Ure2 internal ribosome entry site (IRES): a 105-nucleotide RNA from Saccharomyces kudriavzevii. Gene Ontology term of the family: ribosome binding.

[Rfam]
RNA sequence: CAAAAUGAUGACAACGAAAACAACAUCAAAGAUACAUUGGAACAACAUCGACAACAACAGCAGGCGUUUUCUGAUAUGAAUCGCGUGGAGUACUCAAGAAUUACA
Numbered sequence: 001c002a003a004a005a006u007g008a009u010g011a012c013a014a015c016g017a018a019a020a021c022a023a024c025a026u027c028a029a030a031g032a033u034a035c036a037u038u039g040g041a042a043c044a045a046c047a048u049c050g051a052c053a054a055c056a057a058c059a060g061c062a063g064g065c066g067u068u069u070u071c072u073g074a075u076a077u078g079a080a081u082c083g084c085g086u087g088g089a090g091u092a093c094u095c096a097a098g099a100a101u102u103a104c105a
Stems, first nucleotide, its partner, number of pairs: 014086003019081001023077001025075003029070005035064001037062001